[Rfam]
RNA sequence: AAUGGCAAUUACAAUGGGAAGCAAGGCUGUAAGGCGGAGCGAAUCCGGAAAGAUUGCCUCAGUUCGGAUUGUUCUCUGCAACUCGGGAACAUGAAGUUGGA
Dot-bracket structure: ...(((((((......((..((...(((....)))...))....)).....)))))))......(....(((((((........)))))))....).....
Shown here is a 101-nucleotide part of an RNA, a member of the family "Bacterial small subunit ribosomal RNA". A reference for the family is Yusupov et al. (2001), "Crystal structure of the ribosome at 5.5 A resolution", Science.